[Rfam]
RNA: Rhizobiales sRNA Atu_At1
Organism: Rhodobacter sp. SGA-6-6
RNA sequence: CCGCCGGCAUGUCAACCGGGCGCAACGGUAUGGAGAACACGGCGGUUUUCCCGGUUUCCCGCCCUGGCCGACGCAUCGGCAGACGAGCUUCUGUCCCGUUUGCGC
Numbered sequence: 001c002c003g004c005c006g007g008c009a010u011g012u013c014a015a016c017c018g019g020g021c022g023c024a025a026c027g028g029u030a031u032g033g034a035g036a037a038c039a040c041g042g043c044g045g046u047u048u049u050c051c052c053g054g055u056u057u058c059c060c061g062c063c064c065u066g067g068c069c070g071a072c073g074c075a076u077c078g079g080c081a082g083a084c085g086a087g088c089u090u091c092u093g094u095c096c097c098g099u100u101u102g103c104g105c
Stems, first nucleotide, its partner, number of pairs: 007103003010022004024100003027096002032091004038066002041063004067080003